[Rfam]
RNA: Plastid-psbA-1 3UTR RNA
RNA sequence: GUUGAAGUUCCAUCUAUCAAUGGAUAAGACUUUGGUCUUAGUAUCUAUGAGUUCGUGAAAGUUUUGAAAGUAAAGGAGCAAUACUAAAUUUCUUGUUAUAUCAAGAGGUUUGGUGUUGCUCCUUU
Numbered sequence: 001g002u003u004g005a006a007g008u009u010c011c012a013u014c015u016a017u018c019a020a021u022g023g024a025u026a027a028g029a030c031u032u033u034g035g036u037c038u039u040a041g042u043a044u045c046u047a048u049g050a051g052u053u054c055g056u057g058a059a060a061g062u063u064u065u066g067a068a069a070g071u072a073a074a075g076g077a078g079c080a081a082u083a084c085u086a087a088a089u090u091u092c093u094u095g096u097u098a099u100a101u102c103a104a105g106a107g108g109u110u111u112g113g114u115g116u117u118g119c120u121c122c123u124u125u
Stems, first nucleotide, its partner, number of pairs: 009024005072125013086111003090107005